This 56-nucleotide RNA sequence from Perca flavescens belongs to the Rfam family "Cyanobacteria heterocyst sRNA".
RNA sequence: GGGAAGUUGCUGUGCGCUGCUUUUUAACAGAAGUUUGGUGGUUAACCAAACCAUUU
Dot-bracket structure: .((..((......)).))...........(..(((((((.....)))))))..)..
The family has 5 seed sequences and 36 matches in Rfam 15.1.
The family's RNA type in Rfam is small RNA.
A search with the family's covariance model found it, with a score of 39 bits.
The literature on the family includes a 2016 paper in Front Microbiol by Brenes-Alvarez et al., "Identification of Conserved and Potentially Regulatory Small RNAs in Heterocystous Cyanobacteria".